Notes
Rfam assigns this 579-nucleotide part of an RNA from Methanosalsum zhilinae to the family "Archaeal large subunit ribosomal RNA". Rfam's curators put it in the seed alignment. Lineage of the source: Archaea > Methanobacteriati > Methanomicrobia > Methanosarcinaceae > Methanosalsum zhilinae.
[Rfam]
Nucleotides: 579
Base pairs, nucleotide, nucleotide: 001574002573003572004571005570006569007568010566011565012564014561015560022395023394024393025392027391028390029387030386031385032384033383035189036188037187038186042181043180044179045178046177047176048175051154052153053152054151055150056149057148058147059146060145061144062143063142064141065140066139068137078136079135080134081133082132085119086118087117097110098109099108100107101106158169159168160167161166192205193203194202195201206228207227208226209225210224211223231334232333237289238288239287240286241285242284243269244268246264247263248262249261250260251259270279271278294320295319296318297317298316299315300314301313302312322331324329345373346372347371348370349369351368353367354366355365356364404445405444406443408442409439410438411437412436413435414434415433419429420428456531457529458528459527460526461523462520463519464518465517466516469494470493473488474487475486476485477484497509498508499507500506537555538554539553540552541550542549543548
Number, partner (000 for none) and nucleotide at each position: 001574c002573c003572u004571c005570u006569a007568g008000g009000g010566g011565g012564a013000a014561g015560u016000g017000a018000a019000g020000a021000c022395c023394c024393c025392g026000u027391g028390g029387a030386g031385c032384u033383u034000u035189a036188c037187u038186g039000c040000a041000g042181c043180c044179u045178g046177u047176c048175g049000u050000u051154g052153a053152g054151u055150u056149g057148u058147g059146a060145u061144u062143u063142c064141g065140c066139a067000u068137g069000u070000a071000c072000a073000g074000u075000g076000u077000a078136g079135g080134u081133a082132g083000g084000a085119g086118g087117c088000g089000u090000c091000g092000a093000a094000a095000c096000c097110c098109g099108c100107g101106c102000g103000c104000c105000a106101g107100c108099g109098u110097g111000g112000g113000u114000g115000g116000a117087g118086c119085c120000a121000c122000c123000a124000a125000u126000g127000g128000g129000a130000c131000a132082c133081u134080a135079c136078c137068c138000u139066u140065g141064u142063g143062a144061a145060a146059u147058u148057g149056c150055g151054a152053c153052u154051c155000u156000a157000a158169c159168u160167c161166c162000g163000c164000g165000a166161g167160g168159a169158g170000g171000a172000c173000c174000c175048c176047g177046a178045u179044a180043g181042g182000u183000g184000g185000g186038c187037a188036g189035u190000u191000u192205g193203c194202c195201u196000g197000g198000g199000g200000c201195g202194g203193g204000a205192c206228g207227c208226c209225c210224u211223u212000g213000a214000a215000a216000a217000g218000a219000u220000a221000u222000c223211a224210a225209g226208g227207g228206c229000g230000c231334a232333c233000a234000a235000a236000g237289g238288u239287u240286g241285a242284c243269u244268c245000a246264g247263g248262u249261g250260g251259g252000u253000c254000g255000g256000a257000a258000a259251c260250c261249c262248g263247c264246c265000g266000a267000a268244g269243a270279g271278u272000g273000c274000a275000a276000g277000a278271g279270c280000a281000u282000a283000a284242g285241u286240c287239a288238g289237c290000c291000u292000g293000a294320c295319g296318u297317g298316a299315u300314c301313u302312g303000a304000c305000a306000c307000a308000g309000u310000a311000a312302c313301a314300g315299a316298u317297c318296a319295c320294g321000a322331g323000a324329c325000g326000a327000a328000a329324g330000u331322c332000g333232g334231u335000u336000c337000u338000a339000g340000c341000g342000a343000a344000c345373c346372u347371u348370u349369a350000c351368g352000u353367c354366c355365u356364g357000c358000u359000u360000g361000a362000u363000g364356c365355g366354g367353g368351c369349u370348a371347a372346a373345g374000c375000u376000g377000a378000c379000a380000g381000a382000a383033a384032a385031g386030u387029u388000a389000c390028c391027c392025c393024g394023g395022g396000g397000a398000u399000a400000a401000u402000u403000g404445a405444g406443u407000c408442g409439u410438u411437g412436c413435c414434g415433g416000c417000a418000a419429g420428a421000g422000c423000a424000c425000a426000u427000a428420u429419c430000g431000a432000c433415c434414c435413g436412g437411c438410a439409g440000c441000u442408u443406g444405c445404u446000a447000c448000c449000u450000c451000g452000a453000u454000g455000u456531c457529g458528g459527u460526u461523c462520u463519u464518u465517c466516c467000a468000u469494c470493c471000u472000g473488g474487c475486u476485g477484u478000g479000c480000a481000g482000c483000a484477g485476c486475a487474g488473c489000c490000a491000a492000g493470g494469g495000u496000g497509a498508g499507g500506u501000u502000g503000u504000u505000c506500g507499c508498c509497u510000a511000u512000u513000a514000a515000a516466g517465g518464a519463g520462a521000u522000c523461g524000u525000g526460a527459g528458c529457u530000g531456g532000g533000u534000u535000u536000a537555g538554a539553c540552c541550g542549u543548c544000g545000u546000g547000a548543g549542a550541c551000a552540g553539g554538u555537c556000g557000g558000u559000u560015a561014c562000u563000a564012u565011c566010u567000a568007c569006u570005a571004g572003a573002g574001g575000u576000g577000u578000a579000a

The family's consensus secondary structure is taken from published work.